[Rfam]
RNA sequence: UCCUCCUGUGCCUCUGAGCUGACAGCAGUGUGAUAGAAUACACUGGCUCAGUUCAGCAGGAACAAGAG
Numbered sequence: 001u002c003c004u005c006c007u008g009u010g011c012c013u014c015u016g017a018g019c020u021g022a023c024a025g026c027a028g029u030g031u032g033a034u035a036g037a038a039u040a041c042a043c044u045g046g047c048u049c050a051g052u053u054c055a056g057c058a059g060g061a062a063c064a065a066g067a068g
Stems, first nucleotide, its partner, number of pairs: 003068003008063002011060003014056009026045004
RNA: mir-24 microRNA precursor family